The family of this 86-nucleotide RNA sequence from Anaerosolibacter carboniphilus is "c-di-GMP-I riboswitch aptamer". Rfam's curators write: GEMM was predicted in a large-scale screen for bacterial structured RNA regulatory elements. A search with the family's covariance model found it, with a score of 82 bits. Its family is annotated with cyclic-di-GMP binding in the Gene Ontology.

RNA sequence: UGUCGAUAAUAGCAAACCUAUUGAAAAGUAGGGACGCAAAAUCAUGGGUCUAAGGAAUUUUAUUCUAUGAUUGCCAGAUUGCCGAA
Numbered sequence: 001u002g003u004c005g006a007u008a009a010u011a012g013c014a015a016a017c018c019u020a021u022u023g024a025a026a027a028g029u030a031g032g033g034a035c036g037c038a039a040a041a042u043c044a045u046g047g048g049u050c051u052a053a054g055g056a057a058u059u060u061u062a063u064u065c066u067a068u069g070a071u072u073g074c075c076a077g078a079u080u081g082c083c084g085a086a
Stems, first nucleotide, its partner, number of pairs: 012037002017032006040080004045076003048071003055065004